[Rfam]
RNA sequence: GUUGCCUUUAUGAGGCCAGGUGCGGAAACUAUGCCCUAGUGGUGCCUGUCUGAUGCUUGGCAAU
Numbered sequence: 001g002u003u004g005c006c007u008u009u010a011u012g013a014g015g016c017c018a019g020g021u022g023c024g025g026a027a028a029c030u031a032u033g034c035c036c037u038a039g040u041g042g043u044g045c046c047u048g049u050c051u052g053a054u055g056c057u058u059g060g061c062a063a064u
Stems, first nucleotide, its partner, number of pairs: 001064005015050001017048007029039003

This 64-nucleotide RNA from Megalops atlanticus belongs to the Rfam family "Selenocysteine insertion sequence 1".
About the family: The incorporation of selenocysteine into a protein sequence is directed by an in-frame UGA codon (usually a stop codon) within the coding region of the mRNA. Selenoprotein mRNAs contain a conserved secondary structure in the 3' UTR that is required for the distinction of UGA stop from UGA selenocysteine. The selenocysteine insertion sequence (SECIS) is around 60 nt in length and adopts a hairpin structure which is sufficiently well-defined and conserved to act as a computational screen for selenoprotein genes.
A search with the family's covariance model found it, with a score of 40 bits.
The base pairs follow the family's consensus structure, which is taken from published work.
By type it is a cis-regulatory element.